Notes:
A member of the RNA family "Rhodo-rpoB RNA" from Pelagimonas phthalicica, 91 nucleotides long.
RNA sequence: AGAUCGAGAGACCUUCGGUGGGACGAAGGACGAGAAUGGAUCGGACUUUUGCCGUCACUAGACGAUGCGCGCCGGGGCCCGACGGUGCGUG
Numbered sequence: 001a002g003a004u005c006g007a008g009a010g011a012c013c014u015u016c017g018g019u020g021g022g023a024c025g026a027a028g029g030a031c032g033a034g035a036a037u038g039g040a041u042c043g044g045a046c047u048u049u050u051g052c053c054g055u056c057a058c059u060a061g062a063c064g065a066u067g068c069g070c071g072c073c074g075g076g077g078c079c080c081g082a083c084g085g086u087g088c089g090u091g
Stems, first nucleotide, its partner, number of pairs: 002042004010031001012029006066091009

It is annotated as a cis-regulatory element.